[Rfam]
RNA sequence: UCCCAGUGAUGAGUUGCCAUGCUAAUACUGAGUCACCAGGAAGGGCAGAGUUGCCCUGGUUUGGGUGUCAGUGAGUUUCACAAAACUCACAUGGAGACCUGAGGGAC
Numbered sequence: 001u002c003c004c005a006g007u008g009a010u011g012a013g014u015u016g017c018c019a020u021g022c023u024a025a026u027a028c029u030g031a032g033u034c035a036c037c038a039g040g041a042a043g044g045g046c047a048g049a050g051u052u053g054c055c056c057u058g059g060u061u062u063g064g065g066u067g068u069c070a071g072u073g074a075g076u077u078u079c080a081c082a083a084a085a086c087u088c089a090c091a092u093g094g095a096g097a098c099c100u101g102a103g104g105g106a107c
Base pairs, nucleotide, nucleotide: 001106002105003104004103042057043056044055045054

A member of the RNA family "Small nucleolar RNA U6-53/MBII-28" from Fukomys damarensis, 107 nucleotides long. By type it is a C/D-box small nucleolar RNA. On this family, see Huttenhofer et al., EMBO J 2001: "RNomics: an experimental approach that identifies 201 candidates for novel, small, non-messenger RNAs in mouse". Pairs were carried over by alignment from the consensus structure. The match comes from Rfam's covariance-model search (110 bits).